[Rfam]
Rfam assigns this 450-nucleotide sequence from Corynebacterium sp. KPL1821 to the family "Bacterial RNase P class A". Rfam classes the family as a ribozyme. From the family's description: Ribonuclease P (RNase P) is a ubiquitous endoribonuclease, found in archaea, bacteria and eukarya as well as chloroplasts and mitochondria. It scores 274 bits against the family's covariance model. The organism belongs to Corynebacterium, within Bacteria. The base pairs follow the family's consensus structure, which is taken from published work.

RNA sequence: UGAGCCGGCCGGGUGAUCGCGUCGCUUCAUACGGGCAGCGAGCUGCUGCCGCGUGGGCGCCGAGGAAAGUCCGGACUCCAUAGAGCACGGUGGUUGCUAACGGCAACCCGGGGAAACCCGCGGGCAAGUGCAACAGAAAGUAGACCGCCUUGUGCCUCCGCUUGAGCUUCGGCCCAAGUUGGAGCAACAAGGUAAGGGUGAAACGGUGCGUUAAGAGCGCACCAGCACCGUCAGUGAUGGCGGUGGCUGGGUAAACCCCACCGGGAGCAAGGCAUCACGGCCCCGCCACGUUGCGGGGCCCGAUCAGGCGUUUUAAGGCUGCUCGCUCGAGCCUGAAGGUAGCUGCUGGAACCAACUGGCAACGGUUGGUCUAGAUGGAUGUUCACCGCACGGUGCUCCCUUGGGAGUGCCGCGAUUAGACAGAAUCCGGCUUAUAGGCCGACUCAUUCG
Numbered sequence: 001u002g003a004g005c006c007g008g009c010c011g012g013g014u015g016a017u018c019g020c021g022u023c024g025c026u027u028c029a030u031a032c033g034g035g036c037a038g039c040g041a042g043c044u045g046c047u048g049c050c051g052c053g054u055g056g057g058c059g060c061c062g063a064g065g066a067a068a069g070u071c072c073g074g075a076c077u078c079c080a081u082a083g084a085g086c087a088c089g090g091u092g093g094u095u096g097c098u099a100a101c102g103g104c105a106a107c108c109c110g111g112g113g114a115a116a117c118c119c120g121c122g123g124g125c126a127a128g129u130g131c132a133a134c135a136g137a138a139a140g141u142a143g144a145c146c147g148c149c150u151u152g153u154g155c156c157u158c159c160g161c162u163u164g165a166g167c168u169u170c171g172g173c174c175c176a177a178g179u180u181g182g183a184g185c186a187a188c189a190a191g192g193u194a195a196g197g198g199u200g201a202a203a204c205g206g207u208g209c210g211u212u213a214a215g216a217g218c219g220c221a222c223c224a225g226c227a228c229c230g231u232c233a234g235u236g237a238u239g240g241c242g243g244u245g246g247c248u249g250g251g252u253a254a255a256c257c258c259c260a261c262c263g264g265g266a267g268c269a270a271g272g273c274a275u276c277a278c279g280g281c282c283c284c285g286c287c288a289c290g291u292u293g294c295g296g297g298g299c300c301c302g303a304u305c306a307g308g309c310g311u312u313u314u315a316a317g318g319c320u321g322c323u324c325g326c327u328c329g330a331g332c333c334u335g336a337a338g339g340u341a342g343c344u345g346c347u348g349g350a351a352c353c354a355a356c357u358g359g360c361a362a363c364g365g366u367u368g369g370u371c372u373a374g375a376u377g378g379a380u381g382u383u384c385a386c387c388g389c390a391c392g393g394u395g396c397u398c399c400c401u402u403g404g405g406a407g408u409g410c411c412g413c414g415a416u417u418a419g420a421c422a423g424a425a426u427c428c429g430g431c432u433u434a435u436a437g438g439c440c441g442a443c444u445c446a447u448u449c450g
Stems, first nucleotide, its partner, number of pairs: 001446004006441005011435001012387005018381001020062002023059005067433003071430005076267004083324004088263005093107005108122001109120004123258002128256002130252002145197002147193007205223006225247001226245008271344003304336006317327003351370008
Dot-bracket structure: ((((.(((((((((((.(.((.(((((...........................))))).))....[[[.[[[[[((((...[[[[.((((((((((.....)))))(((((....)))).)((...((((.............(((((((((.................................)))))))..)).......((((((.......)))))).(((((((((....)))))))).)...))..)))))))))))))...(((..............................((((((.......(((.]]]])))...)))))).....)))......((((((((....))))))))..........).)))))......................................]]]]]]]].).))))).))))....